[Rfam]
Bacterial large signal recognition particle RNA: a 263-nucleotide RNA from bacterium HR24. A reference for the family is Rosenblad et al. (2009), "Kinship in the SRP RNA family", RNA Biol. Rfam links the family to the GO terms signal recognition particle, plasma membrane targeting and SRP-dependent cotranslational protein targeting to membrane, signal sequence recognition. Pairs were carried over by alignment from the consensus structure, which is taken from published work. Its Rfam clan is "SRP clan".
RNA sequence: CCGUGCUAGGCGGGGAGCUGGCGGUGCCCUGAACCCGCAAUCCGCCAUAGCGGGGCCGAACUCCUGCUCGAGGCCCGGGGCUGUGGAGGCUACCGCCGACAGGCGGCGAAGAUGGUCGGGUCCUGCGCGGCGGGGCGCCACGAACCCCGUCAGGCCCGGAAGGGAGCAGCGGUAAGUGGUGGCCUCGGGCGCCGCAGGUCGGCCUGGCCGGAGCUGGCCAACGGCGGCAAGGCCGUAGUCACGGGUCGACAGCGGGUGCACGG
Number, nucleotide and partner (000 for none) at each position: 001c263002c262003g261004u260005g259006c258007u000008a000009g057010g056011c055012g030013g029014g028015g027016a000017g025018c024019u023020g000021g000022c000023g019024g018025u017026g000027c015028c014029c013030u012031g000032a000033a000034c054035c053036c052037g051038c050039a000040a000041u000042c000043c000044g000045c000046c000047a000048u000049a000050g038051c037052g036053g035054g034055g011056c010057c009058g000059a000060a000061c000062u000063c256064c255065u254066g253067c252068u251069c000070g000071a000072g247073g246074c245075c244076c243077g000078g000079g240080g239081c238082u237083g236084u235085g234086g233087a000088g000089g000090c000091u229092a000093c000094c226095g225096c224097c223098g222099a000100c000101a000102g219103g218104c000105g215106g214107c213108g000109a000110a000111g000112a000113u210114g209115g208116u207117c206118g205119g204120g203121u202122c198123c197124u196125g195126c194127g193128c189129g000130g000131c187132g186133g185134g184135g183136c181137g180138c179139c178140a177141c176142g000143a000144a000145c000146c000147c172148c171149g170150u169151c000152a000153g000154g000155c164156c163157c162158g000159g000160a000161a000162g157163g156164g155165a000166g000167c000168a000169g150170c149171g148172g147173u000174a000175a000176g141177u140178g139179g138180u137181g136182g000183c135184c134185u133186c132187g131188g000189g128190c000191g000192c000193c127194g126195c125196a124197g123198g122199u000200c000201g000202g121203c120204c119205u118206g117207g116208c115209c114210g113211g000212a000213g107214c106215u105216g000217g000218c103219c102220a000221a000222c098223g097224g096225c095226g094227g000228c000229a091230a000231g000232g000233c086234c085235g084236u083237a082238g081239u080240c079241a000242c000243g076244g075245g074246u073247c072248g000249a000250c000251a068252g067253c066254g065255g064256g063257u000258g006259c005260a004261c003262g002263g001